[Rfam]
RNA sequence: CAAGCCAGAAGAGGCGCGUCGCCCAGGUAGAGUGUCAGAGGAGCCAUUAUCCGAUGACGGCACUGGAGGGGGAGCGACGCCGAGGCGAGAUGCUUACGGCAAUCAUCACGUCGGCUACAGGGGCUGAAUCCCCUGAGUUGUCACCAUGGGCUGCUCUGAAUGUGCAGUCAGCAAGGUGGGGCGCUUCUGGGUGU
Numbered sequence: 001c002a003a004g005c006c007a008g009a010a011g012a013g014g015c016g017c018g019u020c021g022c023c024c025a026g027g028u029a030g031a032g033u034g035u036c037a038g039a040g041g042a043g044c045c046a047u048u049a050u051c052c053g054a055u056g057a058c059g060g061c062a063c064u065g066g067a068g069g070g071g072g073a074g075c076g077a078c079g080c081c082g083a084g085g086c087g088a089g090a091u092g093c094u095u096a097c098g099g100c101a102a103u104c105a106u107c108a109c110g111u112c113g114g115c116u117a118c119a120g121g122g123g124c125u126g127a128a129u130c131c132c133c134u135g136a137g138u139u140g141u142c143a144c145c146a147u148g149g150g151c152u153g154c155u156c157u158g159a160a161u162g163u164g165c166a167g168u169c170a171g172c173a174a175g176g177u178g179g180g181g182c183g184c185u186u187c188u189g190g191g192u193g194u
Stems, first nucleotide, its partner, number of pairs: 006189006016080007024072001031064006084112004089107004094102002113139004118135006141179005147173001
The family of this 194-nucleotide sequence from Serratia fonticola is "Lysine riboswitch aptamer". A search with the family's covariance model found it, with a score of 98 bits. Taxonomically the source falls in Serratia (Bacteria, Pseudomonadati, Pseudomonadota, Enterobacterales). The family's consensus secondary structure is taken from published work. About the family: Riboswitches are metabolite binding domains within certain messenger RNAs that serve as precision sensors for their corresponding targets.